[Rfam]
Shown here is a 350-nucleotide sequence from Ruminococcaceae bacterium CPB6, a member of the family "Bacterial RNase P class A". Rfam describes the family as follows. Ribonuclease P (RNase P) is a ubiquitous endoribonuclease, found in archaea, bacteria and eukarya as well as chloroplasts and mitochondria. Pairs were carried over by alignment from the consensus structure, which is taken from published work. By type it is a ribozyme. Gene Ontology terms of the family: ribonuclease P activity, dimeric ribonuclease P complex and tRNA processing.

RNA sequence: UGAGCAAACUGGACGGCCGCGGGGGAUGCGCGAAAGCAAACUUCCGAGGAAAGUCCGGGCUUCAUAGGGCAAGGAUAACGGCUAACAGCCGCCGGGGGCGACCCCAGGGAAAGUGCAACAGAAAACGACCGCCGCGGUUUUCCGCGGUAAGGAUGGAAAGGCGAGGCAAGAGCUCACCAGCGUCAGGGAGACCUGACGGCUAUGCAAACCCUAUCCGGAGCAACACCGCAGAGGGACACAAAGCGUCGGCCCGGCGCGUCCCGGGAAGGUGGCACUGAGCCGCGGCGGCAACGCCCGGCCAAGAUAGAUGACCGUCUAAACAGAACCCGGCUUAUAGGUUUGGUCACAAA
Numbered sequence: 001u002g003a004g005c006a007a008a009c010u011g012g013a014c015g016g017c018c019g020c021g022g023g024g025g026a027u028g029c030g031c032g033a034a035a036g037c038a039a040a041c042u043u044c045c046g047a048g049g050a051a052a053g054u055c056c057g058g059g060c061u062u063c064a065u066a067g068g069g070c071a072a073g074g075a076u077a078a079c080g081g082c083u084a085a086c087a088g089c090c091g092c093c094g095g096g097g098g099c100g101a102c103c104c105c106a107g108g109g110a111a112a113g114u115g116c117a118a119c120a121g122a123a124a125a126c127g128a129c130c131g132c133c134g135c136g137g138u139u140u141u142c143c144g145c146g147g148u149a150a151g152g153a154u155g156g157a158a159a160g161g162c163g164a165g166g167c168a169a170g171a172g173c174u175c176a177c178c179a180g181c182g183u184c185a186g187g188g189a190g191a192c193c194u195g196a197c198g199g200c201u202a203u204g205c206a207a208a209c210c211c212u213a214u215c216c217g218g219a220g221c222a223a224c225a226c227c228g229c230a231g232a233g234g235g236a237c238a239c240a241a242a243g244c245g246u247c248g249g250c251c252c253g254g255c256g257c258g259u260c261c262c263g264g265g266a267a268g269g270u271g272g273c274a275c276u277g278a279g280c281c282g283c284g285g286c287g288g289c290a291a292c293g294c295c296c297g298g299c300c301a302a303g304a305u306a307g308a309u310g311a312c313c314g315u316c317u318a319a320a321c322a323g324a325a326c327c328c329g330g331c332u333u334a335u336a337g338g339u340u341u342g343g344u345c346a347c348a349a350a
Stems, first nucleotide, its partner, number of pairs: 001346003005342006011335001012316005018310001020046006027039001051333003055330005060220004068252002073216005079091004093107001094105004108211002113209002115205003129152002131148007160178002163175003180200001181198007224271004234262002238259002243257005279299004284295004
Dot-bracket structure: (((.((((((((((((.(.((((((.(...........).))))))....[[[.[[[[[((((....[[...(((((.((((.....)))).(((((....)))).)((...(((((...........(((((((((....)))))))..)).......((.(((.......))).)).((((((((....))))))).)..)))..)))))))))))))...((((......((..((...(((((...]]))))))).)).....)))).......((((.((((....))))))))..........).))))).........]]]]]]]].).)))))).)))....